Overview: A member of the RNA family "ncRNA Repressor of NFAT (nuclear factor of activated T cells)" from Sphenodon punctatus, 368 nucleotides long. The pairing is the family consensus, mapped onto this sequence. The family has 24 seed sequences and 522 matches in Rfam 15.1. The organism belongs to Sphenodon, within Eukaryota.

RNA sequence: CCUCUCUCUCCCUGCUCGAAACUUUGAAACUUUCCUUUAUCUGUUACACAUUAAUCCAUAUGAGAAAAUAUAUUUUAAUGAGGAGUGAUAUAGUUACAAACUCUCUAGAGCCAUAAUUAGAGCAAACUAAUUGAAGUUGUGUUUUGACACACUUUCCAAAUUCACGGGUGCUGCAUGACAUAUUCACAACGCUGUUGCCGCACAGCCGCGGUGACGGCAAAAUCAUUAGGCUAAUAACGUUGAUUUGCAUUCUUAUCAUGCCAAGCAGCGUGCCGUUAACUACUGCUUCAGCCUCAGCUCCCAAAGUUUCCACUGAACGAUGUUAACAGUAAUUAUUAGUACUUUGGUGGAAUCUGCAAUGCAAAGAA
Numbered sequence: 001c002c003u004c005u006c007u008c009u010c011c012c013u014g015c016u017c018g019a020a021a022c023u024u025u026g027a028a029a030c031u032u033u034c035c036u037u038u039a040u041c042u043g044u045u046a047c048a049c050a051u052u053a054a055u056c057c058a059u060a061u062g063a064g065a066a067a068a069u070a071u072a073u074u075u076u077a078a079u080g081a082g083g084a085g086u087g088a089u090a091u092a093g094u095u096a097c098a099a100a101c102u103c104u105c106u107a108g109a110g111c112c113a114u115a116a117u118u119a120g121a122g123c124a125a126a127c128u129a130a131u132u133g134a135a136g137u138u139g140u141g142u143u144u145u146g147a148c149a150c151a152c153u154u155u156c157c158a159a160a161u162u163c164a165c166g167g168g169u170g171c172u173g174c175a176u177g178a179c180a181u182a183u184u185c186a187c188a189a190c191g192c193u194g195u196u197g198c199c200g201c202a203c204a205g206c207c208g209c210g211g212u213g214a215c216g217g218c219a220a221a222a223u224c225a226u227u228a229g230g231c232u233a234a235u236a237a238c239g240u241u242g243a244u245u246u247g248c249a250u251u252c253u254u255a256u257c258a259u260g261c262c263a264a265g266c267a268g269c270g271u272g273c274c275g276u277u278a279a280c281u282a283c284u285g286c287u288u289c290a291g292c293c294u295c296a297g298c299u300c301c302c303a304a305a306g307u308u309u310c311c312a313c314u315g316a317a318c319g320a321u322g323u324u325a326a327c328a329g330u331a332a333u334u335a336u337u338a339g340u341a342c343u344u345u346g347g348u349g350g351a352a353u354c355u356g357c358a359a360u361g362c363a364a365a366g367a368a
Stems, first nucleotide, its partner, number of pairs: 049361004055351005062344003071084001073082003090336008101110003120300004133155004138151005167274002170269002196213005216262004230248002233245003